[Rfam]
RNA sequence: UGGUACCCAGCGUGAGGGCUGGAUACGGAAGAUCCAGUGAGGGAAGAAGAUGUCACCAAAGGAACGUGUUCCACAAGAAUUCUUCACUCUGAACUCGCUGCAGGAACCUGCCUCGGCCACAACCAGAAGUAAGUACUGACGUCUGAUUAUGGGACAAUAAAUAAGCAGGCACGAACUUUAUUUUAGGCAAUUGCAGGAUGCCUUAAGGAUGCAAGGAGUAAAGGUUAAAAUAGAGGAUCUAUUGAGAUUCUUUGAAUUUAUUAAGGAAACCUGUCCUU
Numbered sequence: 001u002g003g004u005a006c007c008c009a010g011c012g013u014g015a016g017g018g019c020u021g022g023a024u025a026c027g028g029a030a031g032a033u034c035c036a037g038u039g040a041g042g043g044a045a046g047a048a049g050a051u052g053u054c055a056c057c058a059a060a061g062g063a064a065c066g067u068g069u070u071c072c073a074c075a076a077g078a079a080u081u082c083u084u085c086a087c088u089c090u091g092a093a094c095u096c097g098c099u100g101c102a103g104g105a106a107c108c109u110g111c112c113u114c115g116g117c118c119a120c121a122a123c124c125a126g127a128a129g130u131a132a133g134u135a136c137u138g139a140c141g142u143c144u145g146a147u148u149a150u151g152g153g154a155c156a157a158u159a160a161a162u163a164a165g166c167a168g169g170c171a172c173g174a175a176c177u178u179u180a181u182u183u184u185a186g187g188c189a190a191u192u193g194c195a196g197g198a199u200g201c202c203u204u205a206a207g208g209a210u211g212c213a214a215g216g217a218g219u220a221a222a223g224g225u226u227a228a229a230a231u232a233g234a235g236g237a238u239c240u241a242u243u244g245a246g247a248u249u250c251u252u253u254g255a256a257u258u259u260a261u262u263a264a265g266g267a268a269a270c271c272u273g274u275c276c277u278u
Stems, first nucleotide, its partner, number of pairs: 006031001012026003038047001086130003089126002095121001097118001099115002103111001137156002142153004162205003165201003212254008222240005263278005